[Rfam]
RNA sequence: AGAGGUCUCAAGUUUGAGGCUGUAGCAGAAGUGCUCAAGGCGCAGCCUGUCAGAUUCCAAUGAAUCUGCAAAUUCUACU
Numbered sequence: 001a002g003a004g005g006u007c008u009c010a011a012g013u014u015u016g017a018g019g020c021u022g023u024a025g026c027a028g029a030a031g032u033g034c035u036c037a038a039g040g041c042g043c044a045g046c047c048u049g050u051c052a053g054a055u056u057c058c059a060a061u062g063a064a065u066c067u068g069c070a071a072a073u074u075c076u077a078c079u
Base pairs, nucleotide, nucleotide: 018047019046020045021044024079025078027076028075029074030073031043032042033041051068052067053066054065055064056063057062
RNA: Mammalian CPEB3 ribozyme
Organism: Alligator mississippiensis